[Rfam]
Nucleotides: 087
Stems, first nucleotide, its partner, number of pairs: 012037002017033004022029002040081004045077003048072003055066004
Number, partner (000 for none) and nucleotide at each position: 001000g002000a003000c004000g005000a006000u007000a008000a009000a010000u011000a012037g013036c014000a015000a016000a017033c018032u019031u020030g021000a022029g023028u024000g025000a026000a027000a028023g029022c030020c031019a032018a033017g034000g035000c036013g037012c038000a039000a040081a041080g042079c043078c044000u045077u046076g047075g048072g049071u050070c051000u052000u053000c054000c055066a056065g057064u058063u059000g060000u061000c062000u063058a064057a065056c066055u067000g068000a069000u070050g071049a072048u073000u074000g075047c076046c077045a078043g079042g080041u081040u082000a083000c084000c085000g086000a087000u

A member of the RNA family "c-di-GMP-I riboswitch aptamer" from Desulfosporosinus orientis, 87 nucleotides long. Its family is annotated with cyclic-di-GMP binding in the Gene Ontology. The family's consensus secondary structure is taken from published work. It scores 57 bits against the family's covariance model.